RNA sequence: CUACUCCCUUCGUCCCAUAAAAUAAGAACGUUUCUGACACUAGUAGUGUCAGAAACGUUCUUAUUUUAUGGGACGGAGGGAGUAC
Numbered sequence: 001c002u003a004c005u006c007c008c009u010u011c012g013u014c015c016c017a018u019a020a021a022a023u024a025a026g027a028a029c030g031u032u033u034c035u036g037a038c039a040c041u042a043g044u045a046g047u048g049u050c051a052g053a054a055a056c057g058u059u060c061u062u063a064u065u066u067u068a069u070g071g072g073a074c075g076g077a078g079g080g081a082g083u084a085c
Base pairs, nucleotide, nucleotide: 003083004082005081007079008078009077010076011075013073014072015071016070017069019067020066021065022064023063024062025061026060027059028058029057030056031055032054033053034052035051036050037049038048039047040046041045
Overview:
The record is an 85-nucleotide sequence from Triticum turgidum, which matches "MIR1120/MIR1122 microRNA precursor family" in Rfam. Pairs were carried over by alignment from the consensus structure, which was predicted with RNAalifold. A search with the family's covariance model found it, with a score of 95 bits. Rfam links the family to the GO terms miRNA-mediated post-transcriptional gene silencing and RISC complex. Taxonomically the source falls in Triticum turgidum (Eukaryota, Streptophyta, Poales, Triticum).